[Rfam]
RNA: small nucleolar RNA snoR25
Organism: Hepatocystis sp. ex Piliocolobus tephrosceles
RNA sequence: UUAUAAUGAUGAGAAACACAGACCUGAUUUGAUAUACAGUGUGAAAAUAAUUCUACUGCUGAAUAAA
Number, nucleotide and partner (000 for none) at each position: 001u066002u065003a064004u063005a000006a000007u000008g000009a000010u000011g000012a000013g000014a000015a000016a000017c000018a000019c000020a000021g000022a000023c000024c000025u000026g000027a000028u000029u000030u000031g000032a000033u000034a000035u000036a000037c000038a000039g000040u000041g000042u000043g000044a000045a000046a000047a000048u000049a000050a000051u000052u000053c000054u000055a000056c000057u000058g000059c000060u000061g000062a000063a004064u003065a002066a001067a000